Overview: 6S-Flavo RNA: a 108-nucleotide RNA from Flavobacterium sp. NKUCC04_CG. The match comes from Rfam's covariance-model search (100 bits). The family's RNA type in Rfam is small RNA. The base pairs follow the family's consensus structure, which is taken from published work. Lineage of the source: Bacteria > Pseudomonadati > Bacteroidota > Flavobacteriales > Flavobacterium.
RNA sequence: ACUCAACGCUAACAAAUUAAAAUGAGUGAAUCAUUGCUUCUAAAGCACGCUGCCUUGCGCAGAUCCUUGAACAGCAAGAUAGCUCAAAACUUGUCAUAUUACGAGUUU
Numbered sequence: 001a002c003u004c005a006a007c008g009c010u011a012a013c014a015a016a017u018u019a020a021a022a023u024g025a026g027u028g029a030a031u032c033a034u035u036g037c038u039u040c041u042a043a044a045g046c047a048c049g050c051u052g053c054c055u056u057g058c059g060c061a062g063a064u065c066c067u068u069g070a071a072c073a074g075c076a077a078g079a080u081a082g083c084u085c086a087a088a089a090c091u092u093g094u095c096a097u098a099u100u101a102c103g104a105g106u107u108u
Base pairs, nucleotide, nucleotide: 023086024085025084026083027082034077035076036075037074038073043068044067045066050062051061052060053059